A member of the RNA family "Ribosomal protein L20 leader" from Peribacillus saganii, 138 nucleotides long. For this family Rfam cites "Diverse mechanisms for regulating ribosomal protein synthesis in Escherichia coli" (Zengel and Lindahl, Prog Nucleic Acid Res Mol Biol, 1994).
[Rfam]
RNA sequence: GAGGAAAAGAAGAGGCACCCGCUUCUCACCUGAUUGACGCAUCUUUGCAGUUAACAGGUUCAUGAUUUGAUAAUUUGGAUUUAUCCUUUUUAAUCUAUCAGUGUGGGUGUUCUCUGGCACCCACACUUUUUUAUUGCU
Numbered sequence: 001g002a003g004g005a006a007a008a009g010a011a012g013a014g015g016c017a018c019c020c021g022c023u024u025c026u027c028a029c030c031u032g033a034u035u036g037a038c039g040c041a042u043c044u045u046u047g048c049a050g051u052u053a054a055c056a057g058g059u060u061c062a063u064g065a066u067u068u069g070a071u072a073a074u075u076u077g078g079a080u081u082u083a084u085c086c087u088u089u090u091u092a093a094u095c096u097a098u099c100a101g102u103g104u105g106g107g108u109g110u111u112c113u114c115u116g117g118c119a120c121c122c123a124c125a126c127u128u129u130u131u132u133a134u135u136g137c138u
Base pairs, nucleotide, nucleotide: 011026012025013024014023015022016021028059029058030057036052037051038050039048040047102125103124104123105122106121107120108119109118110117111116